[Rfam]
RNA sequence: AAUACAAAAUAAAGAGAAACCUGAUUCUCUUUGUUUCGAGAAACCAGAGGCACAGUAAAGAUGGCAAGAUAUCGUUUCAUUCGUCAGCUCAUUAGAUUGGCGUUUUGAUUGUUGCUUGUCCACAA
Numbered sequence: 001a002a003u004a005c006a007a008a009a010u011a012a013a014g015a016g017a018a019a020c021c022u023g024a025u026u027c028u029c030u031u032u033g034u035u036u037c038g039a040g041a042a043a044c045c046a047g048a049g050g051c052a053c054a055g056u057a058a059a060g061a062u063g064g065c066a067a068g069a070u071a072u073c074g075u076u077u078c079a080u081u082c083g084u085c086a087g088c089u090c091a092u093u094a095g096a097u098u099g100g101c102g103u104u105u106u107g108a109u110u111g112u113u114g115c116u117u118g119u120c121c122a123c124a125a
Stems, first nucleotide, its partner, number of pairs: 007036011063121002065118004071109004082102005089095001

The family of this 125-nucleotide sequence from Daucus carota is "Small nucleolar RNA snoR111".
The family's consensus secondary structure was predicted with WAR.
Rfam links the family to the GO terms nucleolus and RNA processing.
Taxonomically the source falls in Daucus carota (Eukaryota, Euphyllophyta, eudicotyledons, Gunneridae).